[Rfam]
The record is a 94-nucleotide RNA from Paraburkholderia phytofirmans, which matches "Glycine riboswitch aptamer" in Rfam. The match comes from Rfam's covariance-model search (67 bits). This family represents the bacterial glycine riboswitch.
RNA sequence: CAUCGCAGCGCGGGAGAGAUCGUCAGAGGUUUGUGACGACGCCGACGGAGCAACCGCCCCGGAAACUCUCAGGCAAAAGGACCGCGCAGCUGGA
Numbered sequence: 001c002a003u004c005g006c007a008g009c010g011c012g013g014g015a016g017a018g019a020u021c022g023u024c025a026g027a028g029g030u031u032u033g034u035g036a037c038g039a040c041g042c043c044g045a046c047g048g049a050g051c052a053a054c055c056g057c058c059c060c061g062g063a064a065a066c067u068c069u070c071a072g073g074c075a076a077a078a079g080g081a082c083c084g085c086g087c088a089g090c091u092g093g094a
Stems, first nucleotide, its partner, number of pairs: 006089001008087006020039006041074003044070002048068003054062002